[Rfam]
The family of this 84-nucleotide sequence from Equus caballus is "mir-19 microRNA precursor family". The family is grouped with related families in Rfam's "mir-19 clan". For this family Rfam cites "Identification of novel genes coding for small expressed RNAs" (Lagos-Quintana et al., Science, 2001). Rfam's curators put it in the seed alignment. Its family is annotated with miRNA-mediated post-transcriptional gene silencing and RISC complex in the Gene Ontology. The family has 106 seed sequences and 2,337 matches in Rfam 15.1.

RNA sequence: ACUUACGAUUAGUUUUGCAGGUUUGCAUUUCAGCGUAUAUAUGUAUAUAUGGCUGUGCAAAUCCAUGCAAAACUGAUUGUGAUA
Numbered sequence: 001a002c003u004u005a006c007g008a009u010u011a012g013u014u015u016u017g018c019a020g021g022u023u024u025g026c027a028u029u030u031c032a033g034c035g036u037a038u039a040u041a042u043g044u045a046u047a048u049a050u051g052g053c054u055g056u057g058c059a060a061a062u063c064c065a066u067g068c069a070a071a072a073c074u075g076a077u078u079g080u081g082a083u084a
Stems, first nucleotide, its partner, number of pairs: 003082017020064002022061007032054003